[Rfam]
RNA: small nucleolar RNA snoR127
Organism: Helianthus annuus
RNA sequence: CUGGGGUGAUGCAACUUAGCCAAAUCAGACGAUGAUGUGCUCCAUAGGUAGGCUGUUUUAAGUAGCUUGUGCCUUUGUUGAAGCGCAUCAUCUCUUUGAUGAUAAAAACAGAGAUCGGUUUUUUGCUGACCAGG
Numbered sequence: 001c002u003g004g005g006g007u008g009a010u011g012c013a014a015c016u017u018a019g020c021c022a023a024a025u026c027a028g029a030c031g032a033u034g035a036u037g038u039g040c041u042c043c044a045u046a047g048g049u050a051g052g053c054u055g056u057u058u059u060a061a062g063u064a065g066c067u068u069g070u071g072c073c074u075u076u077g078u079u080g081a082a083g084c085g086c087a088u089c090a091u092c093u094c095u096u097u098g099a100u101g102a103u104a105a106a107a108a109c110a111g112a113g114a115u116c117g118g119u120u121u122u123u124u125g126c127u128g129a130c131c132a133g134g
Stems, first nucleotide, its partner, number of pairs: 001133004